[Rfam]
RNA sequence: UGACUCUGGAGAAGCUCGACCACGAGUGCCGAAGGUGCAAAGCGGGAAUUCCCGCCAAUCUCUCAGGCAAAAGGACAGAGACGAACAA
Numbered sequence: 001u002g003a004c005u006c007u008g009g010a011g012a013a014g015c016u017c018g019a020c021c022a023c024g025a026g027u028g029c030c031g032a033a034g035g036u037g038c039a040a041a042g043c044g045g046g047a048a049u050u051c052c053c054g055c056c057a058a059u060c061u062c063u064c065a066g067g068c069a070a071a072a073g074g075a076c077a078g079a080g081a082c083g084a085a086c087a088a
Base pairs, nucleotide, nucleotide: 001083002082004080005079006078007077008076015026016025017024018023028068029067030066031064032063035062037060042055043054
Dot-bracket structure: ((.(((((......((((....)))).(((((..(.(....((..........))....).))).))).......))))).)).....